RNA sequence: GGGGAUGAUCGGUUUCGACAUUGCCUGCGAAACUGCGAGAAGCGGGCCGAGGAUGCAGGGUUAUCUCGUAAACGAUCUCUGCAAAAUAUAGGUGCCAAUUCUAAGCGCACCGACUUCGCCCUAGCCGCCUAGGCUAGCUUCGAGGUCCGUCAGACCGGGUUCGCUCUCGUCCCGGACCCUGGCGCCAUUUAGAGAGCUUGCUGCGUCGUCACGCCUGAGGGCGACGCGGGACUUUUUCUCGGGCUGGGCCUGUCACCCUAGAUGCCUGUAGCAAAGGGUGGGGCCGAGUAGAACGUCUCAACAGGCUACGCCCGUAGAAGGCGCAGAAUCACAGCAGUGGACGGGGGUUCAAUUCCCCCCAUCUCCACCA
Numbered sequence: 001g002g003g004g005a006u007g008a009u010c011g012g013u014u015u016c017g018a019c020a021u022u023g024c025c026u027g028c029g030a031a032a033c034u035g036c037g038a039g040a041a042g043c044g045g046g047c048c049g050a051g052g053a054u055g056c057a058g059g060g061u062u063a064u065c066u067c068g069u070a071a072a073c074g075a076u077c078u079c080u081g082c083a084a085a086a087u088a089u090a091g092g093u094g095c096c097a098a099u100u101c102u103a104a105g106c107g108c109a110c111c112g113a114c115u116u117c118g119c120c121c122u123a124g125c126c127g128c129c130u131a132g133g134c135u136a137g138c139u140u141c142g143a144g145g146u147c148c149g150u151c152a153g154a155c156c157g158g159g160u161u162c163g164c165u166c167u168c169g170u171c172c173c174g175g176a177c178c179c180u181g182g183c184g185c186c187a188u189u190u191a192g193a194g195a196g197c198u199u200g201c202u203g204c205g206u207c208g209u210c211a212c213g214c215c216u217g218a219g220g221g222c223g224a225c226g227c228g229g230g231a232c233u234u235u236u237u238c239u240c241g242g243g244c245u246g247g248g249c250c251u252g253u254c255a256c257c258c259u260a261g262a263u264g265c266c267u268g269u270a271g272c273a274a275a276g277g278g279u280g281g282g283g284c285c286g287a288g289u290a291g292a293a294c295g296u297c298u299c300a301a302c303a304g305g306c307u308a309c310g311c312c313c314g315u316a317g318a319a320g321g322c323g324c325a326g327a328a329u330c331a332c333a334g335c336a337g338u339g340g341a342c343g344g345g346g347g348u349u350c351a352a353u354u355c356c357c358c359c360c361a362u363c364u365c366c367a368c369c370a
Stems, first nucleotide, its partner, number of pairs: 001366007019339005025334003033326005043314005048068005054083007120145003124141001127138002148184006155175005160169001163197006201229009213245001215243002247285005254280003259274001261272001264306004269300001271298001343359005

Background:
The family of this 370-nucleotide RNA sequence from Okibacterium fritillariae is "transfer-messenger RNA". NCBI's taxonomy places the organism under Bacteria, Bacillati, Actinomycetes, Micrococcales, Okibacterium. Its family is annotated with RNA catabolic process in the Gene Ontology. The base pairs follow the family's consensus structure, which is taken from published work. Clan: tRNA clan.